[Rfam]
RNA: Streptomyces RNA 1601
RNA sequence: GACGACCGGCCGCACACCUAUGUGUACGGCCCACAAGUGGAGGCUCCGAACUCCCACCUGACCGUCCUCCGGGACGGCGGGUCACCGGUCAGGCGGCCACCACCGUUCCGUACGGACGGUGGAGUCGCCCGAAAUCGCGCCCCGCGGUUGACGCGGCGGUGUUCCGGCAGUGGAGCCCCGCCUGUGUCCCGUCCGGGGCAUUUUUC
Numbered sequence: 001g002a003c004g005a006c007c008g009g010c011c012g013c014a015c016a017c018c019u020a021u022g023u024g025u026a027c028g029g030c031c032c033a034c035a036a037g038u039g040g041a042g043g044c045u046c047c048g049a050a051c052u053c054c055c056a057c058c059u060g061a062c063c064g065u066c067c068u069c070c071g072g073g074a075c076g077g078c079g080g081g082u083c084a085c086c087g088g089u090c091a092g093g094c095g096g097c098c099a100c101c102a103c104c105g106u107u108c109c110g111u112a113c114g115g116a117c118g119g120u121g122g123a124g125u126c127g128c129c130c131g132a133a134a135u136c137g138c139g140c141c142c143c144g145c146g147g148u149u150g151a152c153g154c155g156g157c158g159g160u161g162u163u164c165c166g167g168c169a170g171u172g173g174a175g176c177c178c179c180g181c182c183u184g185u186g187u188c189c190c191g192u193c194c195g196g197g198g199c200a201u202u203u204u205u206c
Base pairs, nucleotide, nucleotide: 004090005089006088007087008086009085012027028083029082030081031080032079034060035059037057038056039055040054041052042051062077063076064075065074066073067072092129093128094127096126100122101121102120103119104118105117106116107115139199140198141197142196143195144194145191146190147189152186153185154184155182156181157180158179159178161176162175163174164173165172